Background: This 78-nucleotide RNA from Xenopus laevis belongs to the Rfam family "mir-144 microRNA precursor family". The base pairs follow the family's consensus structure, which was predicted with RNAalifold. Its family is annotated with miRNA-mediated post-transcriptional gene silencing and RISC complex in the Gene Ontology.

[Rfam]
RNA sequence: ACUGAGUUUGGGAUAUCAUCAUAUACUGUAAGUUUGUUUUAAGACACUACAGUAUAGAUGAUGUACUACACCAAGUCU
Numbered sequence: 001a002c003u004g005a006g007u008u009u010g011g012g013a014u015a016u017c018a019u020c021a022u023a024u025a026c027u028g029u030a031a032g033u034u035u036g037u038u039u040u041a042a043g044a045c046a047c048u049a050c051a052g053u054a055u056a057g058a059u060g061a062u063g064u065a066c067u068a069c070a071c072c073a074a075g076u077c078u
Base pairs, nucleotide, nucleotide: 007070010067011066013064014063015062016061017060018059019058020057022056023055024054025053026052027051028050029049030048032045033044034043
Overview: A search with the family's covariance model found it, with a score of 82 bits. Lineage of the source: Eukaryota > Opisthokonta > Bilateria > Xenopus > Xenopus. The family has 32 seed sequences and 594 matches in Rfam 15.1. The literature on the family includes a 2006 paper in FEBS Lett by Xu et al., "Identification of microRNAs from different tissues of chicken embryo and adult chicken".